[Rfam]
RNA: Small nucleolar RNA SNORD113/SNORD114 family
RNA sequence: GGAACCAGUGGUGAUGAUGGGUCAUGGACGUUGGAUAGUAGGUGUCCGGAACCCUGAGGUUCAA
Numbered sequence: 001g002g003a004a005c006c007a008g009u010g011g012u013g014a015u016g017a018u019g020g021g022u023c024a025u026g027g028a029c030g031u032u033g034g035a036u037a038g039u040a041g042g043u044g045u046c047c048g049g050a051a052c053c054c055u056g057a058g059g060u061u062c063a064a
Stems, first nucleotide, its partner, number of pairs: 002062005